A member of the RNA family "Small nucleolar RNA Z279/snoR105/snoR108" from Raphanus sativus, 112 nucleotides long. NCBI's taxonomy places the organism under Eukaryota, Viridiplantae, Euphyllophyta, malvids, Raphanus. By type it is a C/D-box small nucleolar RNA. A reference for the family is Marker et al. (2002), "Experimental RNomics: identification of 140 candidates for small non-messenger RNAs in the plant Arabidopsis thaliana", Curr Biol. The match comes from Rfam's covariance-model search (74 bits). Rfam describes the family as follows. This family includes the plant snoRNAs known as Z279, snoR105 and snoR108.
RNA sequence: GGGAUGUGAUGAUUGGGUUUAAUAUCUCGCAUAUUUUAUUGCGUGAAGAGCGUUCCGCUCAAACCUCUUAUUACGACAAUUGGGCGCUCCCAUGUCAGUUUAAUCUGAUCCC
Numbered sequence: 001g002g003g004a005u006g007u008g009a010u011g012a013u014u015g016g017g018u019u020u021a022a023u024a025u026c027u028c029g030c031a032u033a034u035u036u037u038a039u040u041g042c043g044u045g046a047a048g049a050g051c052g053u054u055c056c057g058c059u060c061a062a063a064c065c066u067c068u069u070a071u072u073a074c075g076a077c078a079a080u081u082g083g084g085c086g087c088u089c090c091c092a093u094g095u096c097a098g099u100u101u102a103a104u105c106u107g108a109u110c111c112c
Base pairs, nucleotide, nucleotide: 001112002111003110004109014103016101017100026045028043029042030041048089049088050087051086052085053084054083068082070080071079